Rfam assigns this 202-nucleotide RNA from Neopipo cinnamomea to the family "Small nucleolar RNA SNORA74". U19 belongs to the H/ACA class of snoRNAs. snoRNAs bind a number of proteins (including dyskerin, Gar1p and Nop10p in the case of the H/ACA class) to form snoRNP complexes. This class are thought to guide the sites of modification of uridines to pseudouridines by forming direct base pairing interactions with substrate RNAs. A reference for the family is Ganot et al. (1997), "The family of box ACA small nucleolar RNAs is defined by an evolutionarily conserved secondary structure and ubiquitous sequence elements essential for RNA accumulation", Genes Dev. It scores 95 bits against the family's covariance model. Rfam 15.1 lists 1,348 matches to the family in 628 species. The family's consensus secondary structure was predicted with PFOLD.
RNA sequence: UCCAGUGGUAGUCAGCUGUCCAGAGCAAUACUGUGCCUGCGACAGUGUUACACUGCUGGGAGAUAAAGAUCAGUCAUUUCUUCUGGCUGCUGUUGUCCCCGUUCUGGAGGCAGCUGAGGCCAUAAGAAGUGUCGCUGUGCUUCCCUGAGAGCGCGCUAGAGGUGUCCUUUCCCUCUGCAGUGCUAGUCUGGGAGCAUACAGA
Number, nucleotide and partner (000 for none) at each position: 001u060002c059003c058004a057005g056006u055007g054008g053009u052010a000011g051012u050013c000014a000015g046016c045017u044018g043019u042020c041021c039022a038023g037024a000025g000026c000027a000028a000029u000030a000031c000032u000033g000034u000035g000036c000037c023038u022039g021040c000041g020042a019043c018044a017045g016046u015047g000048u000049u000050a012051c011052a009053c008054u007055g006056c005057u004058g003059g002060g001061a000062g000063a000064u000065a000066a000067a000068g135069a000070u000071c000072a000073g133074u000075c131076a130077u000078u000079u000080c000081u000082u128083c000084u126085g000086g000087c119088u118089g000090c116091u000092g114093u000094u112095g111096u110097c109098c000099c107100c106101g000102u000103u000104c000105u000106g100107g099108a000109g097110g096111c095112a094113g000114c092115u000116g090117a000118g088119g087120c000121c000122a000123u000124a000125a000126g084127a000128a082129g000130u076131g075132u000133c073134g000135c068136u000137g197138u196139g195140c194141u193142u192143c191144c190145c000146u000147g000148a000149g000150a000151g000152c000153g183154c182155g181156c000157u177158a176159g175160a174161g173162g172163u000164g000165u000166c000167c000168u000169u000170u000171c000172c162173c161174u160175c159176u158177g157178c000179a000180g000181u155182g154183c153184u000185a000186g000187u000188c000189u000190g144191g143192g142193a141194g140195c139196a138197u137198a000199c000200a000201g000202a000